A member of the RNA family "Rhodo-rpoB RNA", 92 nucleotides long. Pairs were carried over by alignment from the consensus structure, which is taken from published work. Rfam classes the family as a cis-regulatory element.
[Rfam]
RNA sequence: AAGCGGGAGCGUGUCGGUGGGACGAUACGCAGGUAUUGGCUUGGUUUUCCUGUCUCAAAAGGGCCGCGCACCGAUGCCCGACGGUGUAGCGA
Numbered sequence: 001a002a003g004c005g006g007g008a009g010c011g012u013g014u015c016g017g018u019g020g021g022a023c024g025a026u027a028c029g030c031a032g033g034u035a036u037u038g039g040c041u042u043g044g045u046u047u048u049c050c051u052g053u054c055u056c057a058a059a060a061g062g063g064c065c066g067c068g069c070a071c072c073g074a075u076g077c078c079c080g081a082c083g084g085u086g087u088a089g090c091g092a
Stems, first nucleotide, its partner, number of pairs: 001042003004038001009030008065091003069086005
Dot-bracket structure: ((((....((((((((......)))))))).......).)))......................(((.(((((........)))))..))).